[Rfam]
RNA sequence: UCUGGAGCACUAAGAAGGCUGAAUAUGAUGAAGCAAUAAUGCUGAUAAAAUCCUCCUAGAAAAAAGGAUUGGAGAGAGCAGCGUUUAUUGGAGAAUAUCACUAGGUUGACUAUACUGUCCAACAUUG
Numbered sequence: 001u002c003u004g005g006a007g008c009a010c011u012a013a014g015a016a017g018g019c020u021g022a023a024u025a026u027g028a029u030g031a032a033g034c035a036a037u038a039a040u041g042c043u044g045a046u047a048a049a050a051u052c053c054u055c056c057u058a059g060a061a062a063a064a065a066g067g068a069u070u071g072g073a074g075a076g077a078g079c080a081g082c083g084u085u086u087a088u089u090g091g092a093g094a095a096u097a098u099c100a101c102u103a104g105g106u107u108g109a110c111u112a113u114a115c116u117g118u119c120c121a122a123c124a125u126u127g
Stems, first nucleotide, its partner, number of pairs: 002059002004056004009051001017043003024038003066120004077111002079108004084103001089100003
Overview: Shown here is a 127-nucleotide RNA sequence from Orycteropus afer, a member of the family "Small Cajal body specific RNA 4". scaRNAs are a specific class of small nuclear RNAs which localise to the Cajal bodies and guide the modification of RNA polymerase II transcribed spliceosomal RNAs U1, U2, U4, U5 and U12. ACA26 belongs to the H/ACA box class of guide RNAs as it has the predicted hairpin-hinge-hairpin-tail structure, conserved H/ACA-box motifs and is found associated with GAR1. The literature on the family includes a 2002 paper in EMBO J by Darzacq et al., "Cajal body-specific small nuclear RNAs: a novel class of 2'-O-methylation and pseudouridylation guide RNAs". A search with the family's covariance model found it, with a score of 109 bits. Gene Ontology terms of the family: RNA processing, nucleolus and Cajal body. By type it is a small Cajal body RNA.